[Rfam]
RNA: c-di-GMP-I riboswitch aptamer
Organism: Alicyclobacillus sp. SO9
RNA sequence: UACGGAUAAAGGCACCCUUGGAGGAAACUCCAAGAUACGCAAAGCCACGGAGCUACGGUACAUCUUGUGCUAUGCCCGCCGGGUUACCCAU
Numbered sequence: 001u002a003c004g005g006a007u008a009a010a011g012g013c014a015c016c017c018u019u020g021g022a023g024g025a026a027a028c029u030c031c032a033a034g035a036u037a038c039g040c041a042a043a044g045c046c047a048c049g050g051a052g053c054u055a056c057g058g059u060a061c062a063u064c065u066u067g068u069g070c071u072a073u074g075c076c077c078g079c080c081g082g083g084u085u086a087c088c089c090a091u
Base pairs, nucleotide, nucleotide: 012040013039018032020030022029023028043085044084045083046082048081049080050079052075053074058070059069060068061067